[Rfam]
Shown here is a 138-nucleotide RNA sequence from Hipposideros armiger, a member of the family "Small nucleolar RNA SNORA5". The source organism's lineage runs through Eukaryota, Opisthokonta, Chordata, Vertebrata and Hipposideros. ACA5 is a member of the H/ACA class of snoRNA that guide the sites of modification of uridines to pseudouridines. Rfam links the family to the GO terms nucleolus and RNA processing. By type it is an H/ACA-box small nucleolar RNA. The match comes from Rfam's covariance-model search (72 bits).
RNA sequence: AGCUUUCUAUCAAAUUCAGUCCCCGCUCCUGUCGUAGCAGAGGCUGGUCCAGAUGGCUGCCACAGCAAGUUCCUCAGCUCAUGGGGAUCCUGGGUUCCCUGCCCUGGGACCUGGGGAUAAGUUUGGCUGUGGACAUGG
Numbered sequence: 001a002g003c004u005u006u007c008u009a010u011c012a013a014a015u016u017c018a019g020u021c022c023c024c025g026c027u028c029c030u031g032u033c034g035u036a037g038c039a040g041a042g043g044c045u046g047g048u049c050c051a052g053a054u055g056g057c058u059g060c061c062a063c064a065g066c067a068a069g070u071u072c073c074u075c076a077g078c079u080c081a082u083g084g085g086g087a088u089c090c091u092g093g094g095u096u097c098c099c100u101g102c103c104c105u106g107g108g109a110c111c112u113g114g115g116g117a118u119a120a121g122u123u124u125g126g127c128u129g130u131g132g133a134c135a136u137g138g
Base pairs, nucleotide, nucleotide: 001058002057017046018045019044020043021042023040025038026037027036075129076128077127078126079125088116089115090114092112093111